[Rfam]
RNA sequence: GCGAAAGUUCCAUGCUUCCUUGCAUUCAAUAGUGAUCUUUGAAACGUAUGGAAUGUAAAGAAGUAUGGAGCGCUCGG
Numbered sequence: 001g002c003g004a005a006a007g008u009u010c011c012a013u014g015c016u017u018c019c020u021u022g023c024a025u026u027c028a029a030u031a032g033u034g035a036u037c038u039u040u041g042a043a044a045c046g047u048a049u050g051g052a053a054u055g056u057a058a059a060g061a062a063g064u065a066u067g068g069a070g071c072g073c074u075c076g077g
Stems, first nucleotide, its partner, number of pairs: 007071012020058006027051001029049003

mir-1 microRNA precursor family: a 77-nucleotide RNA from Culex quinquefasciatus. Rfam's curators write: This family represents the microRNA (miRNA) mir-1 family. miRNAs are transcribed as ~70nt precursors (modelled here) and subsequently processed by the Dicer enzyme to give a ~22nt product. In this case the mature sequence comes from the 3' arm of the precursor. The extents of the hairpin precursors are not generally known and are estimated based on hairpin prediction. The organism belongs to Culex pipiens complex, within Eukaryota. Rfam's curators put it in the seed alignment.